[Rfam]
RNA: Small nucleolar RNA SNORA79
Organism: Dipodomys ordii
RNA sequence: GAAUGGCUUGUCCUUUCACUGCUUGGAGCUUCGGCAGUGGGGUUUUGGUCCAUAGUAUACAAAAGUGGCUUGUCUUCACUCAGGGCACCAUGAAGACAGGGUGGCUGUCCAUUAGUACCUUCUGAUUUUUGCAGAGUCAAACAAAA
Numbered sequence: 001g002a003a004u005g006g007c008u009u010g011u012c013c014u015u016u017c018a019c020u021g022c023u024u025g026g027a028g029c030u031u032c033g034g035c036a037g038u039g040g041g042g043u044u045u046u047g048g049u050c051c052a053u054a055g056u057a058u059a060c061a062a063a064a065g066u067g068g069c070u071u072g073u074c075u076u077c078a079c080u081c082a083g084g085g086c087a088c089c090a091u092g093a094a095g096a097c098a099g100g101g102u103g104g105c106u107g108u109c110c111a112u113u114a115g116u117a118c119c120u121u122c123u124g125a126u127u128u129u130u131g132c133a134g135a136g137u138c139a140a141a142c143a144a145a146a
Stems, first nucleotide, its partner, number of pairs: 003053004008048001014042005020036004067138005080125005085118001087116002095109004